The family of this 117-nucleotide sequence from Holdemania filiformis is "FMN riboswitch aptamer (RFN element)".
RNA sequence: AUAAAACUUCAGGGCAGGGUGCAAUUCCCGACCGGCGGUAAACCCCGCGAGCCGUUUCUCGGUUGAACUGGUGGAAUUCCAGUGGCGACAGUAAAGUCUGGAUGAAAGAAUGUUUUU
Numbered sequence: 001a002u003a004a005a006a007c008u009u010c011a012g013g014g015c016a017g018g019g020u021g022c023a024a025u026u027c028c029c030g031a032c033c034g035g036c037g038g039u040a041a042a043c044c045c046c047g048c049g050a051g052c053c054g055u056u057u058c059u060c061g062g063u064u065g066a067a068c069u070g071g072u073g074g075a076a077u078u079c080c081a082g083u084g085g086c087g088a089c090a091g092u093a094a095a096g097u098c099u100g101g102a103u104g105a106a107a108g109a110a111u112g113u114u115u116u117u
Base pairs, nucleotide, nucleotide: 003115004114005113008110009109010108017029018028019027031097032096033087034086035048036047037046038045043085044084051063052062053061067083068082069081070080071079089100090099091098
NCBI's taxonomy places the organism under Bacteria, Erysipelotrichia, Erysipelotrichales, Erysipelotrichaceae, Holdemania.
Rfam 15.1 lists 6,230 matches to the family in 5,120 species.